[Rfam]
RNA sequence: UGGAUGAGGAUAGCAAAGAGGAGUAUGAUACAAGAAUGUAUCACUUUGGCGAGCAAGUAGCACCAGCGAGGGAGAGUAAGAGCUUGAGUGAAGCUCACAAAAAUGCAAGCCUGCUGAAGAAGUGGAACAAGAAGCAGGAUAAGAUCAUCGCUAAGUCCCUGAAGACUAUCAAGUCUCUGAAGGUUAUGAUAAGUUGCUCCUCUUCCAGCACGGCUAUGCCA
Numbered sequence: 001u002g003g004a005u006g007a008g009g010a011u012a013g014c015a016a017a018g019a020g021g022a023g024u025a026u027g028a029u030a031c032a033a034g035a036a037u038g039u040a041u042c043a044c045u046u047u048g049g050c051g052a053g054c055a056a057g058u059a060g061c062a063c064c065a066g067c068g069a070g071g072g073a074g075a076g077u078a079a080g081a082g083c084u085u086g087a088g089u090g091a092a093g094c095u096c097a098c099a100a101a102a103a104u105g106c107a108a109g110c111c112u113g114c115u116g117a118a119g120a121a122g123u124g125g126a127a128c129a130a131g132a133a134g135c136a137g138g139a140u141a142a143g144a145u146c147a148u149c150g151c152u153a154a155g156u157c158c159c160u161g162a163a164g165a166c167u168a169u170c171a172a173g174u175c176u177c178u179g180a181a182g183g184u185u186a187u188g189a190u191a192a193g194u195u196g197c198u199c200c201u202c203u204u205c206c207a208g209c210a211c212g213g214c215u216a217u218g219c220c221a
Stems, first nucleotide, its partner, number of pairs: 001221003011210001016204010